[Rfam]
RNA: Small Cajal body specific RNA 24
RNA sequence: UGGACAUUUACUUUUGUUUGGUUUCUUCUCAAAGUGAAGAUAACUCAUUGUGAAUGUCCUAGAACAAUAUAGUAGCUUUCUGUUCACCUUUUGCAAGUGAAAAAGGUGAAUCGUUCCACUGCUGACAUUU
Number, nucleotide and partner (000 for none) at each position: 001u000002g059003g058004a057005c056006a055007u054008u053009u052010a051011c050012u000013u000014u000015u000016g000017u000018u000019u000020g045021g044022u043023u042024u040025c039026u038027u037028c036029u000030c000031a000032a000033a000034g000035u000036g028037a027038a026039g025040a024041u000042a023043a022044c021045u020046c000047a000048u000049u000050g011051u010052g009053a008054a007055u006056g005057u004058c003059c002060u000061a000062g000063a000064a000065c000066a000067a000068u000069a000070u124071a123072g122073u121074a120075g119076c000077u000078u000079u000080c000081u000082g000083u000084u000085c000086a000087c000088c000089u104090u103091u102092u101093g000094c000095a000096a000097g000098u000099g000100a000101a092102a091103a090104a089105g000106g000107u000108g000109a000110a000111u000112c000113g000114u000115u000116c000117c000118a000119c075120u074121g073122c072123u071124g070125a000126c000127a000128u000129u000130u000